[Rfam]
RNA sequence: UGCCCAAUUUGGCAGGUAUGGGUUCAGAAUUUUAAGAAAAGCCCCGCUAGUCCGGGGCUUUUUGUUGUAUUAAAACCUGGAGUCAGCCUUGCUGAGCUAGGUGAUGACAGGUGGGCUUCAGGCCCUUUUUUC
Numbered sequence: 001u002g003c004c005c006a007a008u009u010u011g012g013c014a015g016g017u018a019u020g021g022g023u024u025c026a027g028a029a030u031u032u033u034a035a036g037a038a039a040a041g042c043c044c045c046g047c048u049a050g051u052c053c054g055g056g057g058c059u060u061u062u063u064g065u066u067g068u069a070u071u072a073a074a075a076c077c078u079g080g081a082g083u084c085a086g087c088c089u090u091g092c093u094g095a096g097c098u099a100g101g102u103g104a105u106g107a108c109a110g111g112u113g114g115g116c117u118u119c120a121g122g123c124c125c126u127u128u129u130u131u132c
Stems, first nucleotide, its partner, number of pairs: 038061009113125004